[Rfam]
RNA: TPP riboswitch aptamer (THI element)
RNA sequence: UAGAUUUUGUGGGGGGACCAGUUGAUGCUGGUUGAGAUUGUAUCCGAUAGAUACUGACCCUUGGAACCUGAUCUGGCUGAAACCAGCGUAGGGAACAUGUUGAACAGGAAA
Dot-bracket structure: .....(.(((((((.((((((......))))).......((((.......)))))..)))).....((((..((((......))))..))))..))).)............